[Rfam]
Description
A member of the RNA family "raiA RNA" from an Actinomycetota bacterium, 239 nucleotides long.
RNA sequence: CCCACCCGGGUCUGUGGUUGAGGGCGCUAUCGCGCCCAAGUCCAUGGUAGACGCGGCCGAAAGGACCCACGUAAGCCGGCGGUUUCGUCGCGCGAGCAUGGCGCGUCUUAGGGGUAAGUCGUACCGCCCGUUAGGACCGCAUCCCGCGGUUCAGGGGCGAGAGGAUCGUUAGUGAGAUUGCAUCGAGCGAAAGUCCCGGUACGCGAGUGUGGGGUCAAAGACCAGGUCAGCCGGGUGAG
Numbered sequence: 001c002c003c004a005c006c007c008g009g010g011u012c013u014g015u016g017g018u019u020g021a022g023g024g025c026g027c028u029a030u031c032g033c034g035c036c037c038a039a040g041u042c043c044a045u046g047g048u049a050g051a052c053g054c055g056g057c058c059g060a061a062a063g064g065a066c067c068c069a070c071g072u073a074a075g076c077c078g079g080c081g082g083u084u085u086c087g088u089c090g091c092g093c094g095a096g097c098a099u100g101g102c103g104c105g106u107c108u109u110a111g112g113g114g115u116a117a118g119u120c121g122u123a124c125c126g127c128c129c130g131u132u133a134g135g136a137c138c139g140c141a142u143c144c145c146g147c148g149g150u151u152c153a154g155g156g157g158c159g160a161g162a163g164g165a166u167c168g169u170u171a172g173u174g175a176g177a178u179u180g181c182a183u184c185g186a187g188c189g190a191a192a193g194u195c196c197c198g199g200u201a202c203g204c205g206a207g208u209g210u211g212g213g214g215u216c217a218a219a220g221a222c223c224a225g226g227u228c229a230g231c232c233g234g235g236u237g238a239g
Base pairs, nucleotide, nucleotide: 001239003237004236005235006234007233008232009231012230013229014228015224016223017222018221019220044210045209046208047057049108050107051106052105053104054103055102066101067100077090078089079088080087099217120203121202122201123200124199125159126158127157128156129155163196164195165194166193172188173187178182

A search with the family's covariance model found it, with a score of 166 bits. The base pairs follow the family's consensus structure, which is taken from published work.